[Rfam]
About this RNA: The family of this 57-nucleotide sequence is "Streptococcus sRNA SpF59 (ldcC RNA)". By type it is a small RNA. The base pairs follow the family's consensus structure, which was predicted with mfold.
RNA sequence: UGACCGACACUUAAUGUAGUCUUAAACGGCCAAACGGACAGCCAGGUCAAAAGCCGA
Numbered sequence: 001u002g003a004c005c006g007a008c009a010c011u012u013a014a015u016g017u018a019g020u021c022u023u024a025a026a027c028g029g030c031c032a033a034a035c036g037g038a039c040a041g042c043c044a045g046g047u048c049a050a051a052a053g054c055c056g057a
Base pairs, nucleotide, nucleotide: 001049002048003047004046005045006023007022009020010019011018
For this family Rfam cites "Control of virulence by small RNAs in Streptococcus pneumoniae" (Mann et al., PLoS Pathog, 2012).